Nucleotides: 096
Base pairs, nucleotide, nucleotide: 001096002095003094004093042057043056
Number, partner (000 for none) and nucleotide at each position: 001096a002095g003094c004093g005000c006000g007000u008000g009000a010000c011000g012000a013000a014000u015000u016000g017000u018000a019000u020000c021000g022000g023000u024000c025000u026000c027000g028000u029000u030000c031000g032000u033000c034000g035000u036000a037000a038000u039000g040000g041000c042057a043056g044000u045000g046000u047000c048000u049000c050000a051000u052000u053000g054000c055000c056043u057042u058000g059000c060000c061000g062000a063000c064000a065000a066000c067000g068000a069000u070000a071000a072000u073000a074000c075000a076000c077000c078000a079000c080000c081000a082000c083000c084000a085000u086000a087000g088000c089000c090000u091000g092000a093004u094003g095002c096001u